[Rfam]
RNA sequence: GUAGUGGUUUUUGUGUGUCGGUAUUUCCGUUUGUAGCGUAAAAGUGAGGAUCUGCCGCCUAAUAAAAUCCUCCUAACCUUGUUUGUGGCUUAUUGGGCUACUUUAUCAAAGUAACGAUUAUUUGGGU
Numbered sequence: 001g002u003a004g005u006g007g008u009u010u011u012u013g014u015g016u017g018u019c020g021g022u023a024u025u026u027c028c029g030u031u032u033g034u035a036g037c038g039u040a041a042a043a044g045u046g047a048g049g050a051u052c053u054g055c056c057g058c059c060u061a062a063u064a065a066a067a068u069c070c071u072c073c074u075a076a077c078c079u080u081g082u083u084u085g086u087g088g089c090u091u092a093u094u095g096g097g098c099u100a101c102u103u104u105a106u107c108a109a110a111g112u113a114a115c116g117a118u119u120a121u122u123u124g125g126g127u
Stems, first nucleotide, its partner, number of pairs: 003071002006069005019057005026050003036045002085101007
Background:
purD RNA motif: a 127-nucleotide RNA sequence from Helicobacter fennelliae. Its family is annotated with regulation of gene expression in the Gene Ontology. By type it is a cis-regulatory element. Taxonomically the source falls in Helicobacter fennelliae (Bacteria, Campylobacterota, Epsilonproteobacteria, Campylobacterales). On this family, see Weinberg et al., Nucleic Acids Res 2007: "Identification of 22 candidate structured RNAs in bacteria using the CMfinder comparative genomics pipeline".